[Rfam]
RNA sequence: GACUGGUCUGAAGGUACUGAGUUAUCUCAAUUGAUUGUUCCCAGUCAGUUAUAGACUGAAUUCCCUGUUCUAUUUUUUCUCUCCUUCUCACUACUGCACUUGACUAGUGUUAA
Numbered sequence: 001g002a003c004u005g006g007u008c009u010g011a012a013g014g015u016a017c018u019g020a021g022u023u024a025u026c027u028c029a030a031u032u033g034a035u036u037g038u039u040c041c042c043a044g045u046c047a048g049u050u051a052u053a054g055a056c057u058g059a060a061u062u063c064c065c066u067g068u069u070c071u072a073u074u075u076u077u078u079c080u081c082u083c084c085u086u087c088u089c090a091c092u093a094c095u096g097c098a099c100u101u102g103a104c105u106a107g108u109g110u111u112a113a
Base pairs, nucleotide, nucleotide: 002108003107004106005105006104007103008102010101011100014097015096016092018090019089020088021087043075044074047071048070
Y RNA: a 113-nucleotide RNA sequence from Macaca nemestrina. A search with the family's covariance model found it, with a score of 62 bits. Taxonomically the source falls in Macaca (Eukaryota, Catarrhini, Cercopithecoidea, Cercopithecinae). The family has 104 seed sequences and 26,986 matches in Rfam 15.1. It is annotated as a non-coding RNA gene.